[Rfam]
RNA sequence: CCUCUGGCAAUCGCGGCGCCGAUGCCCUACAUGUCGGGGUGCCGCUUGCGGCUAUGGUGAUAAACGUUGCGUGGAAUAAUCGUUACGGACCCGGGGGCAGUGCCCGGCGUCUCCACCACUCCAACCGCCUUUAUCGGGGCGCGUGGCACGGGGACGAAACAGGCUCGACGUGCGUGGUAAAGACGCAGCUUUUGCCCGGCAUUGUACCGCCGUUAUCGGGCUAAAUCACAAGUGCCAACGAUAACGUCCGCGAGGACGUGGCGCUCGCUGCCUAGGAAUAGGUAAGCGCGGUUUGGGGGGCACCGGGCAACAGAAGCCCCCCGCU
Numbered sequence: 001c002c003u004c005u006g007g008c009a010a011u012c013g014c015g016g017c018g019c020c021g022a023u024g025c026c027c028u029a030c031a032u033g034u035c036g037g038g039g040u041g042c043c044g045c046u047u048g049c050g051g052c053u054a055u056g057g058u059g060a061u062a063a064a065c066g067u068u069g070c071g072u073g074g075a076a077u078a079a080u081c082g083u084u085a086c087g088g089a090c091c092c093g094g095g096g097g098c099a100g101u102g103c104c105c106g107g108c109g110u111c112u113c114c115a116c117c118a119c120u121c122c123a124a125c126c127g128c129c130u131u132u133a134u135c136g137g138g139g140c141g142c143g144u145g146g147c148a149c150g151g152g153g154a155c156g157a158a159a160c161a162g163g164c165u166c167g168a169c170g171u172g173c174g175u176g177g178u179a180a181a182g183a184c185g186c187a188g189c190u191u192u193u194g195c196c197c198g199g200c201a202u203u204g205u206a207c208c209g210c211c212g213u214u215a216u217c218g219g220g221c222u223a224a225a226u227c228a229c230a231a232g233u234g235c236c237a238a239c240g241a242u243a244a245c246g247u248c249c250g251c252g253a254g255g256a257c258g259u260g261g262c263g264c265u266c267g268c269u270g271c272c273u274a275g276g277a278a279u280a281g282g283u284a285a286g287c288g289c290g291g292u293u294u295g296g297g298g299g300g301c302a303c304c305g306g307g308c309a310a311c312a313g314a315a316g317c318c319c320c321c322c323g324c325u
Stems, first nucleotide, its partner, number of pairs: 041052004056196005066189007081174003085171003091107005108156007197212004202223001204221001207219002289305004295322006
Annotation
Shown here is a 325-nucleotide RNA from Roseococcus suduntuyensis, a member of the family "Alphaproteobacteria transfer-messenger RNA". Its Rfam clan is "tRNA clan". A search with the family's covariance model found it, with a score of 236 bits. Gene Ontology term of the family: RNA catabolic process. The source organism's lineage runs through Bacteria, Pseudomonadota, Alphaproteobacteria, Acetobacterales and Roseococcus. Rfam describes the family as follows. Bacterial tmRNA, also known as 10Sa RNA or SsrA, is named for its dual tRNA and mRNA-like properties. Pairs were carried over by alignment from the consensus structure, which is taken from published work.